[Rfam]
A member of the RNA family "EFASI RNA" from Escherichia coli, 159 nucleotides long. The organism belongs to Escherichia coli, within Bacteria.
RNA sequence: GUAGUGAGAUGCCGAAUCGGCGAUACCACUUAUUAGAGGUGGUGUCGGGGGCGACCUGGAGACAGGUACAGCAAAUGCUGCAGUCGGUGUGCAACACCGAUUUGUUACCCCUCAAUACCUAAACAAUCUGCGCUACCCUGGCGCACAGGCAGUCACUAC
Numbered sequence: 001g002u003a004g005u006g007a008g009a010u011g012c013c014g015a016a017u018c019g020g021c022g023a024u025a026c027c028a029c030u031u032a033u034u035a036g037a038g039g040u041g042g043u044g045u046c047g048g049g050g051g052c053g054a055c056c057u058g059g060a061g062a063c064a065g066g067u068a069c070a071g072c073a074a075a076u077g078c079u080g081c082a083g084u085c086g087g088u089g090u091g092c093a094a095c096a097c098c099g100a101u102u103u104g105u106u107a108c109c110c111c112u113c114a115a116u117a118c119c120u121a122a123a124c125a126a127u128c129u130g131c132g133c134u135a136c137c138c139u140g141g142c143g144c145a146c147a148g149g150c151a152g153u154c155a156c157u158a159c
Base pairs, nucleotide, nucleotide: 001159002158003157004156005155006154007153010151011150012149013148021047022046023045024044025043026042027041028040029039030038048111049110050109051108055066056065057064058063081104082103083102086098087097088096089095090094

Rfam classes the family as a small RNA.